[Rfam]
RNA: Lysine riboswitch aptamer
Organism: Clostridium cylindrosporum
RNA sequence: UAUUUUGGUAGAGGAGCGGUCCUUAAGAGUAGCAAUGUGGAGCUAAGCACUAUGAAGCAUUGAGAAAGGAAGUACCGCCGAAGUAUAUAGCUGAUGCUUUAAGGCUAUGUAACUGGUUUUAUGCAUAAUAUGUAUAAAAUUGUCACAAAGAAAUUUGUGGAGGGCUAUCUUUUUA
Numbered sequence: 001u002a003u004u005u006u007g008g009u010a011g012a013g014g015a016g017c018g019g020u021c022c023u024u025a026a027g028a029g030u031a032g033c034a035a036u037g038u039g040g041a042g043c044u045a046a047g048c049a050c051u052a053u054g055a056a057g058c059a060u061u062g063a064g065a066a067a068g069g070a071a072g073u074a075c076c077g078c079c080g081a082a083g084u085a086u087a088u089a090g091c092u093g094a095u096g097c098u099u100u101a102a103g104g105c106u107a108u109g110u111a112a113c114u115g116g117u118u119u120u121a122u123g124c125a126u127a128a129u130a131u132g133u134a135u136a137a138a139a140u141u142g143u144c145a146c147a148a149a150g151a152a153a154u155u156u157g158u159g160g161a162g163g164g165c166u167a168u169c170u171u172u173u174u175a
Base pairs, nucleotide, nucleotide: 007169008168009167010166011165016078017077018076019075020074022072023071024070033062034061035060036059037058038057082114083113084112086109087108088107089106090105091104092103115141116140117139118138119137120136121135122134123133124132125131143160144159145158146157147156148155149154